Rfam assigns this 88-nucleotide RNA sequence from Gemmatimonas sp. to the family "c-di-GMP-I riboswitch aptamer". The organism belongs to Gemmatimonas, within Bacteria.
RNA sequence: CGCUGCUCAGAGCAAACUCGGCGAAAGCCGGGGACGCAGAGCUUCGGGGCUACAUCGGACGUUCCGAUACGCCAGCCGGGCCGCCAGC
Numbered sequence: 001c002g003c004u005g006c007u008c009a010g011a012g013c014a015a016a017c018u019c020g021g022c023g024a025a026a027g028c029c030g031g032g033g034a035c036g037c038a039g040a041g042c043u044u045c046g047g048g049g050c051u052a053c054a055u056c057g058g059a060c061g062u063u064c065c066g067a068u069a070c071g072c073c074a075g076c077c078g079g080g081c082c083g084c085c086a087g088c
Stems, first nucleotide, its partner, number of pairs: 012037002017032006041081003045078003048073003055067004